[Rfam]
RNA sequence: GCUCGACAAUGGCAAACCUAUCUAAAGAUAGGGACGCAAAACUAAAGGGGCUUAGUGUAAAACACUGUGCCAGCCAGUUAUCGAA
Numbered sequence: 001g002c003u004c005g006a007c008a009a010u011g012g013c014a015a016a017c018c019u020a021u022c023u024a025a026a027g028a029u030a031g032g033g034a035c036g037c038a039a040a041a042c043u044a045a046a047g048g049g050g051c052u053u054a055g056u057g058u059a060a061a062a063c064a065c066u067g068u069g070c071c072a073g074c075c076a077g078u079u080a081u082c083g084a085a
Base pairs, nucleotide, nucleotide: 012037013036017032018031019030020029021028022027040079041078042077043076047075048074049071050070051069055065056064057063058062
This 85-nucleotide sequence from Paenibacillus ferrarius belongs to the Rfam family "c-di-GMP-I riboswitch aptamer". Its Rfam clan is "c-di-GMP_I riboswitch clan". From the family's description: GEMM was predicted in a large-scale screen for bacterial structured RNA regulatory elements.